[Rfam]
RNA sequence: GCCGUCUCAACGGGGUGCAAAAUUUUUGCUGAGAGUAAACCCGUCGAACCUGAUCCGGUUAAUACCGGCGAAGGGAUUUGAGAGAGUCAUAUAU
Numbered sequence: 001g002c003c004g005u006c007u008c009a010a011c012g013g014g015g016u017g018c019a020a021a022a023u024u025u026u027u028g029c030u031g032a033g034a035g036u037a038a039a040c041c042c043g044u045c046g047a048a049c050c051u052g053a054u055c056c057g058g059u060u061a062a063u064a065c066c067g068g069c070g071a072a073g074g075g076a077u078u079u080g081a082g083a084g085a086g087u088c089a090u091a092u093a094u
Stems, first nucleotide, its partner, number of pairs: 006082005011043004016037001017029005049074003055068004
Dot-bracket structure: .....(((((((((.((((((...))))).......)..)))).....(((...((((......))))...)))...)))))............

This 94-nucleotide RNA sequence from Yersinia ruckeri belongs to the Rfam family "TPP riboswitch aptamer (THI element)". The organism belongs to Yersinia, within Bacteria. The base pairs follow the family's consensus structure, which is taken from published work. A search with the family's covariance model found it, with a score of 79 bits.